[Rfam]
RNA sequence: UCGUCAGGUGGGAUAAUCCUUACCUAUUACUCCAUAUGGAGAGCAGAUUAGGAAAGGAUAAUGGGAGCUCGCAUGAUACGUGAUUAUACAUCUCCAUGUAAUCAGGACUUGCAACAAAAGUGAUCCAUGUAAUCAAAA
Numbered sequence: 001u002c003g004u005c006a007g008g009u010g011g012g013a014u015a016a017u018c019c020u021u022a023c024c025u026a027u028u029a030c031u032c033c034a035u036a037u038g039g040a041g042a043g044c045a046g047a048u049u050a051g052g053a054a055a056g057g058a059u060a061a062u063g064g065g066a067g068c069u070c071g072c073a074u075g076a077u078a079c080g081u082g083a084u085u086a087u088a089c090a091u092c093u094c095c096a097u098g099u100a101a102u103c104a105g106g107a108c109u110u111g112c113a114a115c116a117a118a119a120g121u122g123a124u125c126c127a128u129g130u131a132a133u134c135a136a137a138a
Stems, first nucleotide, its partner, number of pairs: 024046002028043001030041004075094002078091001080089001081086001098133002101130002105126002
RNA: U8 small nucleolar RNA